[Rfam]
RNA sequence: UCGGGGUAAAAUAGUAAGUACCCGACUUGGGGAAGUGAUCGACCCUUAGGAUGAGUUUAAAUCUGUUUUUUUUUACUCCAUAAACUUUCUACCAUGAGUAAAAUGAUUCUUGUUGGGGUAUAAAAAAAAAUCAGAUUUAAAUUUAGCCCAAGGGUUGGUGAUGUAUUUUUCCUAAGAAGGCUGCUCACUAUUUUACCCAAU
Numbered sequence: 001u002c003g004g005g006g007u008a009a010a011a012u013a014g015u016a017a018g019u020a021c022c023c024g025a026c027u028u029g030g031g032g033a034a035g036u037g038a039u040c041g042a043c044c045c046u047u048a049g050g051a052u053g054a055g056u057u058u059a060a061a062u063c064u065g066u067u068u069u070u071u072u073u074u075a076c077u078c079c080a081u082a083a084a085c086u087u088u089c090u091a092c093c094a095u096g097a098g099u100a101a102a103a104u105g106a107u108u109c110u111u112g113u114u115g116g117g118g119u120a121u122a123a124a125a126a127a128a129a130a131u132c133a134g135a136u137u138u139a140a141a142u143u144u145a146g147c148c149c150a151a152g153g154g155u156u157g158g159u160g161a162u163g164u165a166u167u168u169u170u171c172c173u174a175a176g177a178a179g180g181c182u183g184c185u186c187a188c189u190a191u192u193u194u195a196c197c198c199a200a201u
Base pairs, nucleotide, nucleotide: 004198005197006196007195008194009193010192011191012190013189014188015187017185018184019183020182022180023179026176027175028174029173030172031171032170033169034168035167038162039161040160041159042155043154044153046151047150049148050147052145053144054143055142057140058139059138060137061136062135063134064133065132067130068129069128070127071126072125073124074120075119076118077117078116079115080114085105087103088102090100091099092098
Rfam assigns this 201-nucleotide sequence from Medicago truncatula to the family "MIR2670 microRNA precursor family". A search with the family's covariance model found it, with a score of 175 bits. The family's consensus secondary structure was predicted with RNAalifold. Gene Ontology terms of the family: miRNA-mediated post-transcriptional gene silencing and RISC complex. The organism belongs to Medicago, within Eukaryota.